Shown here is a 35-nucleotide RNA sequence, a member of the family "DUF805b RNA".

Nucleotides: 035
Stems, first nucleotide, its partner, number of pairs: 003020003010034003
Number, partner (000 for none) and nucleotide at each position: 001000a002000c003020a004019g005018c006000g007000g008000a009000a010034u011033c012032c013000g014000a015000a016000a017000a018005g019004c020003u021000a022000u023000a024000a025000u026000a027000g028000a029000g030000u031000a032012g033011g034010a035000u
The base pairs follow the family's consensus structure, which is taken from published work.